[Rfam]
RNA sequence: UAAAAUAAUUAGCAAAUCUAUCGAAAGGUAGUGGCGCAAAGCUAUGGGUCUAAAGAUAUUUAUCAAAUAUCCAUGAUUGCCAGGUUGCACAC
Numbered sequence: 001u002a003a004a005a006u007a008a009u010u011a012g013c014a015a016a017u018c019u020a021u022c023g024a025a026a027g028g029u030a031g032u033g034g035c036g037c038a039a040a041g042c043u044a045u046g047g048g049u050c051u052a053a054a055g056a057u058a059u060u061u062a063u064c065a066a067a068u069a070u071c072c073a074u075g076a077u078u079g080c081c082a083g084g085u086u087g088c089a090c091a092c
Base pairs, nucleotide, nucleotide: 012037013036018031019030020029021028022027040086041085042084043083045082046081047080048077049076050075055071056070057069058068059067060066
Source information:
The family of this 92-nucleotide sequence from Orenia marismortui is "c-di-GMP-I riboswitch aptamer". It scores 68 bits against the family's covariance model.